[Rfam]
RNA: DUF805b RNA
RNA sequence: UCAGAGGAAACUGAAAAUCUGUAAAUAGAGUAGGUA
Numbered sequence: 001u002c003a004g005a006g007g008a009a010a011c012u013g014a015a016a017a018u019c020u021g022u023a024a025a026u027a028g029a030g031u032a033g034g035u036a
Stems, first nucleotide, its partner, number of pairs: 002021004010035003